[Rfam]
RNA sequence: GGAGUAUCCAAAGCGAUCGCUGUCCUCUAGAGGGAGGGAGGAAAGUCCGGACUCCACAGGGCAGGGCGCUGGAGAAAUUCCAGUGGGUGCGAACCCAAGGAAAGUGCCACAGAAACAUACCGCCCAGGGCUUCGACUGGGCAAAGGGCUGCGGCUGUUUGCCUUAGUUGUAAGCCUUGGGUAAGGGUGAAAAGGUGAGGUAAGAGCUCACCAGCUGCAGGGCGACCUGCAGGCUAGGCAAACCCCGCCCGGAGCAAGACCGAAUAGGAGGGGAUGAGGUGGCCCGCUGACCCUCGGGUACGGUCGCACGAGGCAUGGCGCAAGUCAUGUCCCAGAUAAAUGAUCGCUAUUUACAGAAUCCGGCUUAUUGGAUGCUCCUUUU
Dot-bracket structure: ((((((((((((((((((.((.((((.....)))).))....[[[.[[[[[((((...[[[[.((((((((((.....)))))(((((....)))).)((...(((((...........(((((((((((((......................................)))))))))))..)).......((((((.......)))))).((((((((....))))))).)..)))..)))))))))))))...((((......(((((.....(((.]]]])))..)))))......))))......((((((((....))))))))..........)))))))..........]]]]]]]].)))))))))))....
Numbered sequence: 001g002g003a004g005u006a007u008c009c010a011a012a013g014c015g016a017u018c019g020c021u022g023u024c025c026u027c028u029a030g031a032g033g034g035a036g037g038g039a040g041g042a043a044a045g046u047c048c049g050g051a052c053u054c055c056a057c058a059g060g061g062c063a064g065g066g067c068g069c070u071g072g073a074g075a076a077a078u079u080c081c082a083g084u085g086g087g088u089g090c091g092a093a094c095c096c097a098a099g100g101a102a103a104g105u106g107c108c109a110c111a112g113a114a115a116c117a118u119a120c121c122g123c124c125c126a127g128g129g130c131u132u133c134g135a136c137u138g139g140g141c142a143a144a145g146g147g148c149u150g151c152g153g154c155u156g157u158u159u160g161c162c163u164u165a166g167u168u169g170u171a172a173g174c175c176u177u178g179g180g181u182a183a184g185g186g187u188g189a190a191a192a193g194g195u196g197a198g199g200u201a202a203g204a205g206c207u208c209a210c211c212a213g214c215u216g217c218a219g220g221g222c223g224a225c226c227u228g229c230a231g232g233c234u235a236g237g238c239a240a241a242c243c244c245c246g247c248c249c250g251g252a253g254c255a256a257g258a259c260c261g262a263a264u265a266g267g268a269g270g271g272g273a274u275g276a277g278g279u280g281g282c283c284c285g286c287u288g289a290c291c292c293u294c295g296g297g298u299a300c301g302g303u304c305g306c307a308c309g310a311g312g313c314a315u316g317g318c319g320c321a322a323g324u325c326a327u328g329u330c331c332c333a334g335a336u337a338a339a340u341g342a343u344c345g346c347u348a349u350u351u352a353c354a355g356a357a358u359c360c361g362g363c364u365u366a367u368u369g370g371a372u373g374c375u376c377c378u379u380u381u
Stems, first nucleotide, its partner, number of pairs: 001377011012347007020038002023035004043365003047362005052253004059284004064249005069083005084098001085096004099244002104242002106238003120185002122181011193211006213233001214231007257304004267294005277287003311330008

This 381-nucleotide RNA sequence from Thermovirga lienii belongs to the Rfam family "Bacterial RNase P class A".
The family's RNA type in Rfam is ribozyme.
Gene Ontology terms of the family: dimeric ribonuclease P complex, ribonuclease P activity and tRNA processing.
The source organism's lineage runs through Bacteria, Thermotogati, Synergistota, Thermovirga and Thermovirga lienii.